[Rfam]
RNA sequence: GACAUUGGGUAAUCGAGCCUAACGGUUAGGAAAGUCCAUGCUAGCACAGACUGUGAUGUCUGUAGUGAUUGUGAUAGAGGAAACAAUAACUCUAUGCACGAAAGUGACGGCUGAGAAAGCACCUGUUAAAUGGUGUUAGUAUCUUUAAAAGUGCCACAGAGACGAGCUUCUAGGGAAACUUAGAAGGUGGAACGGGUAAACCCCGCAAGCUAGAAACCCAAAUUAAGGUAGGGGCACUCUAACGAGGGAAUCGAACCUCAAUGGAGACGCUUUUAGCGUAGAUAAAUGAUUACCACCUAGUAAUAGGUACAGAACAUGGCUUACAUAU
Numbered sequence: 001g002a003c004a005u006u007g008g009g010u011a012a013u014c015g016a017g018c019c020u021a022a023c024g025g026u027u028a029g030g031a032a033a034g035u036c037c038a039u040g041c042u043a044g045c046a047c048a049g050a051c052u053g054u055g056a057u058g059u060c061u062g063u064a065g066u067g068a069u070u071g072u073g074a075u076a077g078a079g080g081a082a083a084c085a086a087u088a089a090c091u092c093u094a095u096g097c098a099c100g101a102a103a104g105u106g107a108c109g110g111c112u113g114a115g116a117a118a119g120c121a122c123c124u125g126u127u128a129a130a131u132g133g134u135g136u137u138a139g140u141a142u143c144u145u146u147a148a149a150a151g152u153g154c155c156a157c158a159g160a161g162a163c164g165a166g167c168u169u170c171u172a173g174g175g176a177a178a179c180u181u182a183g184a185a186g187g188u189g190g191a192a193c194g195g196g197u198a199a200a201c202c203c204c205g206c207a208a209g210c211u212a213g214a215a216a217c218c219c220a221a222a223u224u225a226a227g228g229u230a231g232g233g234g235c236a237c238u239c240u241a242a243c244g245a246g247g248g249a250a251u252c253g254a255a256c257c258u259c260a261a262u263g264g265a266g267a268c269g270c271u272u273u274u275a276g277c278g279u280a281g282a283u284a285a286a287u288g289a290u291u292a293c294c295a296c297c298u299a300g301u302a303a304u305a306g307g308u309a310c311a312g313a314a315c316a317u318g319g320c321u322u323a324c325a326u327a328u
Stems, first nucleotide, its partner, number of pairs: 004328002007324001008294007016027004032322003036319005041213005046063006069208005074095006096108001097106003109203002113143002120135004151201002153197003167186008217233003237266005267279005296307004
RNA: Bacterial RNase P class B
Organism: Candidatus Izimoplasma sp. ZiA1